[Rfam]
RNA: Glycine riboswitch aptamer
Organism: Sphingomonas sp. Leaf17
RNA sequence: UGGACCCACGCGGGAGAGGCCCUUGAAUGGGCCGCCGAAGGAGCAACCGCCCCGGCAAUCUCUCAGGCAAACGGACCGCGUGGGGCCG
Numbered sequence: 001u002g003g004a005c006c007c008a009c010g011c012g013g014g015a016g017a018g019g020c021c022c023u024u025g026a027a028u029g030g031g032c033c034g035c036c037g038a039a040g041g042a043g044c045a046a047c048c049g050c051c052c053c054g055g056c057a058a059u060c061u062c063u064c065a066g067g068c069a070a071a072c073g074g075a076c077c078g079c080g081u082g083g084g085g086c087c088g
Stems, first nucleotide, its partner, number of pairs: 006083008019032004034068003037064002041062003047055002